Annotation:
A member of the RNA family "Small nucleolar RNA Z118/Z121/Z120" from Miscanthus lutarioriparius, 103 nucleotides long. On this family, see Chen et al., Nucleic Acids Res 2003: "The high diversity of snoRNAs in plants: identification and comparative study of 120 snoRNA genes from Oryza sativa". The match comes from Rfam's covariance-model search (72 bits). The family's RNA type in Rfam is C/D-box small nucleolar RNA. The family has 7 seed sequences and 435 matches in Rfam 15.1.
RNA sequence: UGAUUGCUAUGAUGACUCCUAUUAGGACGGUAUCUGAAGGGGGUGAUUUUUCAUUGCAUCCCAUCUGAUUAUACCAAAACUGAAUAUGGUUUCUGAGCAAAUC
Dot-bracket structure: .(.((((..............................(.((((...............)))).)................................)))).).
Numbered sequence: 001u002g003a004u005u006g007c008u009a010u011g012a013u014g015a016c017u018c019c020u021a022u023u024a025g026g027a028c029g030g031u032a033u034c035u036g037a038a039g040g041g042g043g044u045g046a047u048u049u050u051u052c053a054u055u056g057c058a059u060c061c062c063a064u065c066u067g068a069u070u071a072u073a074c075c076a077a078a079a080c081u082g083a084a085u086a087u088g089g090u091u092u093c094u095g096a097g098c099a100a101a102u103c
Stems, first nucleotide, its partner, number of pairs: 002102001004100004038064001040062004
Annotation: The source organism's lineage runs through Eukaryota, Viridiplantae, commelinids, Andropogonodae and Miscanthus.